[Rfam]
RNA sequence: GCCAUUAAAUCUGAACAGGCGGUGAACUCUUAGAGGUUCAUGCAGCCGGACCACCAUUUGUGUGGUAGCAGAGUCGUGCUUUGGGCGCACCUGUGGGACAGUA
Numbered sequence: 001g002c003c004a005u006u007a008a009a010u011c012u013g014a015a016c017a018g019g020c021g022g023u024g025a026a027c028u029c030u031u032a033g034a035g036g037u038u039c040a041u042g043c044a045g046c047c048g049g050a051c052c053a054c055c056a057u058u059u060g061u062g063u064g065g066u067a068g069c070a071g072a073g074u075c076g077u078g079c080u081u082u083g084g085g086c087g088c089a090c091c092u093g094u095g096g097g098a099c100a101g102u103a
Stems, first nucleotide, its partner, number of pairs: 011101003016097001018047003022041006050066005068094004

Shown here is a 103-nucleotide RNA sequence from Jeotgalibaca porci, a member of the family "NiCo (Nickel/Cobalt) riboswitch aptamer". On this family, see Furukawa et al., Mol Cell 2015: "Bacterial riboswitches cooperatively bind Ni(2+) or Co(2+) ions and control expression of heavy metal transporters". Its family is annotated with cobalt ion binding and metal ion homeostasis in the Gene Ontology.